[Rfam]
RNA sequence: UAUAAGCUGUGUGACUGGCGGAAAUGUAUGUUUUUACAUACAGUGAGAUUACUCACAGGGAACAUAGCAGUUUUUAAAUGCCGACCGCCUGGGCGACCUUU
Numbered sequence: 001u002a003u004a005a006g007c008u009g010u011g012u013g014a015c016u017g018g019c020g021g022a023a024a025u026g027u028a029u030g031u032u033u034u035u036a037c038a039u040a041c042a043g044u045g046a047g048a049u050u051a052c053u054c055a056c057a058g059g060g061a062a063c064a065u066a067g068c069a070g071u072u073u074u075u076a077a078a079u080g081c082c083g084a085c086c087g088c089c090u091g092g093g094c095g096a097c098c099u100u101u
Stems, first nucleotide, its partner, number of pairs: 006068007015059002017089005044055004079095004
A member of the RNA family "ZMP/ZTP riboswitch aptamer (pfl RNA motif)" from Eubacterium sp. CAG:86, 101 nucleotides long.